[Rfam]
RNA: Guanidine-II riboswitch aptamer (mini-ykkC)
RNA sequence: AAGUAAGGACGACCUUACCGCUCAACCUCAUAGGGGACGGCCCC
Numbered sequence: 001a002a003g004u005a006a007g008g009a010c011g012a013c014c015u016u017a018c019c020g021c022u023c024a025a026c027c028u029c030a031u032a033g034g035g036g037a038c039g040g041c042c043c044c
Stems, first nucleotide, its partner, number of pairs: 003018006033044004